[Rfam]
RNA: Mitochondrial DNA control region secondary structure A
Organism: Callithrix jacchus
RNA sequence: AUCAUUGAAGGCUUAGCCAUGAAGUACUUUGCAAGUACAUAUAAUAUGAUACCUUUACCCUUGCUAUGUAAUUAGUGCAUUAUUGUUUAUCCCCAUGAAUAAUACACU
Numbered sequence: 001a002u003c004a005u006u007g008a009a010g011g012c013u014u015a016g017c018c019a020u021g022a023a024g025u026a027c028u029u030u031g032c033a034a035g036u037a038c039a040u041a042u043a044a045u046a047u048g049a050u051a052c053c054u055u056u057a058c059c060c061u062u063g064c065u066a067u068g069u070a071a072u073u074a075g076u077g078c079a080u081u082a083u084u085g086u087u088u089a090u091c092c093c094c095a096u097g098a099a100u101a102a103u104a105c106a107c108u
Stems, first nucleotide, its partner, number of pairs: 005099002008096001010094002016086002019084001024038006039061001042057003066080005